[Rfam]
RNA: Small nucleolar RNA SNORA30/SNORA37 family
RNA sequence: UUAGCACUUUCACAGAUCCUCCCCAAGGCAGUGGGGCCGGGAUUUGGUAGCUGGUGCUGAGAGAAGACCUUUGAUGGCAUCUUUGCCCUGCGACUAUACCAGCGGCAACUGUCACUCAAUGGGACAGAG
Numbered sequence: 001u002u003a004g005c006a007c008u009u010u011c012a013c014a015g016a017u018c019c020u021c022c023c024c025a026a027g028g029c030a031g032u033g034g035g036g037c038c039g040g041g042a043u044u045u046g047g048u049a050g051c052u053g054g055u056g057c058u059g060a061g062a063g064a065a066g067a068c069c070u071u072u073g074a075u076g077g078c079a080u081c082u083u084u085g086c087c088c089u090g091c092g093a094c095u096a097u098a099c100c101a102g103c104g105g106c107a108a109c110u111g112u113c114a115c116u117c118a119a120u121g122g123g124a125c126a127g128a129g
Stems, first nucleotide, its partner, number of pairs: 003058006013046003017042004022036003068123003071119004077113001079112002083108005088102003